[Rfam]
The family of this 62-nucleotide sequence from Pseudolabrys sp. Root1462 is "Fluoride riboswitch aptamer (crcB RNA motif)". The family's consensus secondary structure is taken from published work.
RNA sequence: CCGCACGAUGGGGAUGGGGUCCCCCGAUAACCGCCGGAAUGGCUGAUGACUCCUGCCGGAUG
Numbered sequence: 001c002c003g004c005a006c007g008a009u010g011g012g013g014a015u016g017g018g019g020u021c022c023c024c025c026g027a028u029a030a031c032c033g034c035c036g037g038a039a040u041g042g043c044u045g046a047u048g049a050c051u052c053c054u055g056c057c058g059g060a061u062g
Stems, first nucleotide, its partner, number of pairs: 010025004016053006033043003